The family of this 114-nucleotide RNA from Niallia nealsonii is "PyrR binding site". This family represents the PyrR binding site and terminator structure. This RNA structure is found upstream of a variety of genes involved in pyrimidine biosynthesis and transport. The alignment also includes a portion of the antiterminator structure. Lineage of the source: Bacteria > Bacilli > Caryophanales > Bacillaceae > Niallia. It scores 66 bits against the family's covariance model.
RNA sequence: AAGUCCUUUAAGUCAAUCCAGAGAGGUUGAGAAGGAAACGGAUAUGCCAUAUUUAUAUGGCGGGUUAUACUAUCAGUUUAUCCUCUCAAACCUUAGGUUGAGAGGAUUUUUUUA
Numbered sequence: 001a002a003g004u005c006c007u008u009u010a011a012g013u014c015a016a017u018c019c020a021g022a023g024a025g026g027u028u029g030a031g032a033a034g035g036a037a038a039c040g041g042a043u044a045u046g047c048c049a050u051a052u053u054u055a056u057a058u059g060g061c062g063g064g065u066u067a068u069a070c071u072a073u074c075a076g077u078u079u080a081u082c083c084u085c086u087c088a089a090a091c092c093u094u095a096g097g098u099u100g101a102g103a104g105g106a107u108u109u110u111u112u113u114a
Base pairs, nucleotide, nucleotide: 004036005035006034007033008032009031013030014029015028016027017026018025041066042065043064045062046061047060048059049058050057051056080107081106082105083104084103085102086101087100089099090098091097092096
About this RNA: The family's RNA type in Rfam is cis-regulatory element. Gene Ontology terms of the family: pyrimidine nucleobase transport and pyrimidine nucleobase biosynthetic process.